Background
The family of this 189-nucleotide RNA from Curvibacter lanceolatus is "RT-15 RNA". Pairs were carried over by alignment from the consensus structure, which is taken from published work. NCBI's taxonomy places the organism under Bacteria, Pseudomonadati, Pseudomonadota, Comamonadaceae, Curvibacter lanceolatus. It is one of the family's seed sequences.
RNA sequence: GGUCGCCCGCCGCAUGAGUGUCAAGGCCUCAUGCCUGUGCGAAUUUUGAAUCUGGUUGCACCGCUGCCCCACAAGGGCACCGCCAAGCGCACCACAGAUACCACCGCCCCAGGCGCGCAGGUCUGGCGCAGUUUCUCCAGUGAUCGGCAGCAGCCUUCGCCGGGGCGACGUAGAUAGUGCAAUCCUCAG
Numbered sequence: 001g002g003u004c005g006c007c008c009g010c011c012g013c014a015u016g017a018g019u020g021u022c023a024a025g026g027c028c029u030c031a032u033g034c035c036u037g038u039g040c041g042a043a044u045u046u047u048g049a050a051u052c053u054g055g056u057u058g059c060a061c062c063g064c065u066g067c068c069c070c071a072c073a074a075g076g077g078c079a080c081c082g083c084c085a086a087g088c089g090c091a092c093c094a095c096a097g098a099u100a101c102c103a104c105c106g107c108c109c110c111a112g113g114c115g116c117g118c119a120g121g122u123c124u125g126g127c128g129c130a131g132u133u134u135c136u137c138c139a140g141u142g143a144u145c146g147g148c149a150g151c152a153g154c155c156u157u158c159g160c161c162g163g164g165g166c167g168a169c170g171u172a173g174a175u176a177g178u179g180c181a182a183u184c185c186u187c188a189g
Base pairs, nucleotide, nucleotide: 004041005040006039012034013033014032015031016030017029018028020027021026056182057181058180059179060178061177062082063081065079066078067077068076069075087129088128089127090126095125096124097123098122101121102120105115106114107113108112132168133167135165136164137163138162140160141159142158143157146155147154148153